The record is a 619-nucleotide RNA from Boletus reticuloceps, which matches "Nuclear RNase P" in Rfam. Ribonuclease P (RNase P) is a ubiquitous endoribonuclease, found in archaea, bacteria and eukarya as well as chloroplasts and mitochondria. Its best characterised activity is the generation of mature 5'-ends of tRNAs by cleaving the 5'-leader elements of precursor-tRNAs. Cellular RNase Ps are ribonucleoproteins.
[Rfam]
RNA sequence: CCAGCUCGAAGGCUGCGAUGCUCACCACGCAUAGGACGUUUCCGCGUCCAACUUCGUGAGCGGGUCAAGGUCUGAGCAUCAGAUCCCCCUCGAUCGGCCCUUGCAGGGCUCAGUUGUAACCAACUGCGCGUCAUACCAGAAAAGCAGCCGUCUCUCGUCAGCCCAAGACCCUGACCAACAGGCGAGGCGCAGAGAGACUCGGCUUUGGAAGGUGUCGCGGGGAUCGGGUGAGAAAAACAGCCUCGACGUCACUUUCAUCUCCCAAAGUGUCCCGUAUGGGACGCCUUGCUCGCGGGGUGUAAGAUUCGCACCAAUGCGAGACUCGGGGGUCUAAUUUGAUCACUUAUCGGAUAGGGCUGCAGCCGUCACCUGUGGCCUUUUGGCAGGGUGGUCCAAGAUAGAACAUCUCAUCUCGCACAAGGGCGGACAUGCCGUGCAUCGCGGCAAGUAGGACCUUGCUGGUCCAGAGUCCGUGCAAAGCUCGUGACGACGUGUUUGUACGCUCUAGGGGAACGAGAAAGGUGGCGUCAAGCAUGGGCAAUUCUCAUCCUUGAGUGCACUUUUGCGGCGCAUGCUCCAGUGUGGGCAUGAAACUCGAUUCAGACUAUUCUCGGACUGG
Numbered sequence: 001c002c003a004g005c006u007c008g009a010a011g012g013c014u015g016c017g018a019u020g021c022u023c024a025c026c027a028c029g030c031a032u033a034g035g036a037c038g039u040u041u042c043c044g045c046g047u048c049c050a051a052c053u054u055c056g057u058g059a060g061c062g063g064g065u066c067a068a069g070g071u072c073u074g075a076g077c078a079u080c081a082g083a084u085c086c087c088c089c090u091c092g093a094u095c096g097g098c099c100c101u102u103g104c105a106g107g108g109c110u111c112a113g114u115u116g117u118a119a120c121c122a123a124c125u126g127c128g129c130g131u132c133a134u135a136c137c138a139g140a141a142a143a144g145c146a147g148c149c150g151u152c153u154c155u156c157g158u159c160a161g162c163c164c165a166a167g168a169c170c171c172u173g174a175c176c177a178a179c180a181g182g183c184g185a186g187g188c189g190c191a192g193a194g195a196g197a198c199u200c201g202g203c204u205u206u207g208g209a210a211g212g213u214g215u216c217g218c219g220g221g222g223a224u225c226g227g228g229u230g231a232g233a234a235a236a237a238c239a240g241c242c243u244c245g246a247c248g249u250c251a252c253u254u255u256c257a258u259c260u261c262c263c264a265a266a267g268u269g270u271c272c273c274g275u276a277u278g279g280g281a282c283g284c285c286u287u288g289c290u291c292g293c294g295g296g297g298u299g300u301a302a303g304a305u306u307c308g309c310a311c312c313a314a315u316g317c318g319a320g321a322c323u324c325g326g327g328g329g330u331c332u333a334a335u336u337u338g339a340u341c342a343c344u345u346a347u348c349g350g351a352u353a354g355g356g357c358u359g360c361a362g363c364c365g366u367c368a369c370c371u372g373u374g375g376c377c378u379u380u381u382g383g384c385a386g387g388g389u390g391g392u393c394c395a396a397g398a399u400a401g402a403a404c405a406u407c408u409c410a411u412c413u414c415g416c417a418c419a420a421g422g423g424c425g426g427a428c429a430u431g432c433c434g435u436g437c438a439u440c441g442c443g444g445c446a447a448g449u450a451g452g453a454c455c456u457u458g459c460u461g462g463u464c465c466a467g468a469g470u471c472c473g474u475g476c477a478a479a480g481c482u483c484g485u486g487a488c489g490a491c492g493u494g495u496u497u498g499u500a501c502g503c504u505c506u507a508g509g510g511g512a513a514c515g516a517g518a519a520a521g522g523u524g525g526c527g528u529c530a531a532g533c534a535u536g537g538g539c540a541a542u543u544c545u546c547a548u549c550c551u552u553g554a555g556u557g558c559a560c561u562u563u564u565g566c567g568g569c570g571c572a573u574g575c576u577c578c579a580g581u582g583u584g585g586g587c588a589u590g591a592a593a594c595u596c597g598a599u600u601c602a603g604a605c606u607a608u609u610c611u612c613g614g615a616c617u618g619g
Stems, first nucleotide, its partner, number of pairs: 001619004007613003012569004017563002020061005034049006072603005086222004096110005111126006128218003132214003147203003571590006